[Rfam]
RNA sequence: GAAGCACCUCAACCCAAGAACUGCUGUUUCUUGUAAUAGCGGUUUAAACAGAGGUGCUGACAGCAAGUUGAUCUCGUCGCCUUUGGGGGGCUGUGGCCGUGCUCCUCAAAGUGAAUUGAGAGGUUCUACAGCC
Numbered sequence: 001g002a003a004g005c006a007c008c009u010c011a012a013c014c015c016a017a018g019a020a021c022u023g024c025u026g027u028u029u030c031u032u033g034u035a036a037u038a039g040c041g042g043u044u045u046a047a048a049c050a051g052a053g054g055u056g057c058u059g060a061c062a063g064c065a066a067g068u069u070g071a072u073c074u075c076g077u078c079g080c081c082u083u084u085g086g087g088g089g090g091c092u093g094u095g096g097c098c099g100u101g102c103u104c105c106u107c108a109a110a111g112u113g114a115a116u117u118g119a120g121a122g123g124u125u126c127u128a129c130a131g132c133c
Stems, first nucleotide, its partner, number of pairs: 003058007019044010070125006081111011
Shown here is a 133-nucleotide sequence from Felis catus, a member of the family "Small nucleolar RNA SNORA68".
It is one of the family's seed sequences.
U68 is a member of the H/ACA class of small nucleolar RNAs (snoRNAs) which act as guides in the the modification of uridines to pseudouridines.
The family has 26 seed sequences and 1,079 matches in Rfam 15.1.
On this family, see Ganot et al., Genes Dev 1997: "The family of box ACA small nucleolar RNAs is defined by an evolutionarily conserved secondary structure and ubiquitous sequence elements essential for RNA accumulation".
By type it is an H/ACA-box small nucleolar RNA.
Lineage of the source: Eukaryota > Opisthokonta > Chordata > Craniata > Felis.